[Rfam]
This 80-nucleotide RNA sequence from Paucimonas lemoignei belongs to the Rfam family "SAH (S-adenosyl-L-homocysteine) riboswitch aptamer".
The match comes from Rfam's covariance-model search (61 bits).
RNA sequence: GGCUCCAAGGAGCGUUGCAGCAUGGCGGCCCGCCAUGUCAGGCUUGGACCAAUUUUCACCCGCAACGGCGCUCACGUUAC
Numbered sequence: 001g002g003c004u005c006c007a008a009g010g011a012g013c014g015u016u017g018c019a020g021c022a023u024g025g026c027g028g029c030c031c032g033c034c035a036u037g038u039c040a041g042g043c044u045u046g047g048a049c050c051a052a053u054u055u056u057c058a059c060c061c062g063c064a065a066c067g068g069c070g071c072u073c074a075c076g077u078u079a080c
Stems, first nucleotide, its partner, number of pairs: 002050001004048005021037006